[Rfam]
RNA: Small nucleolar RNA SNORA81
RNA sequence: ACCUUCUUGUUCAAAGCGCUGUGCUAAAAUCCCAGGGACCAGGGCGAGCUCUGGGCUCUGUGAUAAUGCUAGCAGAGCACGUGCAGGAAGAAGAGCAACCAUGCACUGCAUCCAAACCGACUGGGGUGGACCUCUUUCUUAAUGUCCAGUGUCCCAGGUCGGAAGAUCUGGUGCAACAGUU
Numbered sequence: 001a002c003c004u005u006c007u008u009g010u011u012c013a014a015a016g017c018g019c020u021g022u023g024c025u026a027a028a029a030u031c032c033c034a035g036g037g038a039c040c041a042g043g044g045c046g047a048g049c050u051c052u053g054g055g056c057u058c059u060g061u062g063a064u065a066a067u068g069c070u071a072g073c074a075g076a077g078c079a080c081g082u083g084c085a086g087g088a089a090g091a092a093g094a095g096c097a098a099c100c101a102u103g104c105a106c107u108g109c110a111u112c113c114a115a116a117c118c119g120a121c122u123g124g125g126g127u128g129g130a131c132c133u134c135u136u137u138c139u140u141a142a143u144g145u146c147c148a149g150u151g152u153c154c155c156a157g158g159u160c161g162g163a164a165g166a167u168c169u170g171g172u173g174c175a176a177c178a179g180u181u
Stems, first nucleotide, its partner, number of pairs: 019077002022074005029067002035058002039054006102175007110167001123152001125150001127148004